[Rfam]
RNA sequence: AAAUUCCACUAGGGGUGCCAUCGGAAUGGCUGAGAUAAGAAUAGUUCUUCUUGAUCCCUUUGAACCUGAACUAGUUAAAGCUGGCGGAGGGAAGUGGAGUCGGUCAAAA
Numbered sequence: 001a002a003a004u005u006c007c008a009c010u011a012g013g014g015g016u017g018c019c020a021u022c023g024g025a026a027u028g029g030c031u032g033a034g035a036u037a038a039g040a041a042u043a044g045u046u047c048u049u050c051u052u053g054a055u056c057c058c059u060u061u062g063a064a065c066c067u068g069a070a071c072u073a074g075u076u077a078a079a080g081c082u083g084g085c086g087g088a089g090g091g092a093a094g095u096g097g098a099g100u101c102g103g104u105c106a107a108a109a
Stems, first nucleotide, its partner, number of pairs: 006097005011059004016053001017030005037052005065090003071084004
Overview:
Shown here is a 109-nucleotide RNA sequence from Gracilibacillus dipsosauri, a member of the family "TPP riboswitch aptamer (THI element)". It scores 80 bits against the family's covariance model. The organism belongs to Gracilibacillus, within Bacteria.